[Rfam]
RNA sequence: AAUAGGAAAAUGACAAAUCAGAUUUUUCCUCCUGGUUUUCUGUUUUUUACUCCUGACAAAAUUCAAAUUCAACUAAAAAUGCUAAAAAUUGGAGGAAAAAUUUAAUUUGUCAUUCUCCUAUU
Numbered sequence: 001a002a003u004a005g006g007a008a009a010a011u012g013a014c015a016a017a018u019c020a021g022a023u024u025u026u027u028c029c030u031c032c033u034g035g036u037u038u039u040c041u042g043u044u045u046u047u048u049a050c051u052c053c054u055g056a057c058a059a060a061a062u063u064c065a066a067a068u069u070c071a072a073c074u075a076a077a078a079a080u081g082c083u084a085a086a087a088a089u090u091g092g093a094g095g096a097a098a099a100a101u102u103u104a105a106u107u108u109g110u111c112a113u114u115c116u117c118c119u120a121u122u
Base pairs, nucleotide, nucleotide: 001122002121003120004119005118006117007116009114010113011112012111013110014109015108016107017106018105020103021102022101023100024099025098026097027096029094030093031092032091034090035089036088037087038086039085042082045079046078047077048076